The family of this 99-nucleotide RNA from Digitaria exilis is "Small nucleolar RNA snoR99". The match comes from Rfam's covariance-model search (72 bits). On this family, see Marker et al., Curr Biol 2002: "Experimental RNomics: identification of 140 candidates for small non-messenger RNAs in the plant Arabidopsis thaliana".
RNA sequence: GUGCCUGCGGGAUGAACAAGUCCCUGACAUACAAUACCAUUUUACUCGCUUUGUCAGCUGAUAUUAUGUUUUAAGCUGACCAUUAAGGAUGGAAAAUUU
Numbered sequence: 001g002u003g004c005c006u007g008c009g010g011g012a013u014g015a016a017c018a019a020g021u022c023c024c025u026g027a028c029a030u031a032c033a034a035u036a037c038c039a040u041u042u043u044a045c046u047c048g049c050u051u052u053g054u055c056a057g058c059u060g061a062u063a064u065u066a067u068g069u070u071u072u073a074a075g076c077u078g079a080c081c082a083u084u085a086a087g088g089a090u091g092g093a094a095a096a097u098u099u
Base pairs, nucleotide, nucleotide: 037092038091039090040089041088053080054079055078056077057076058075059074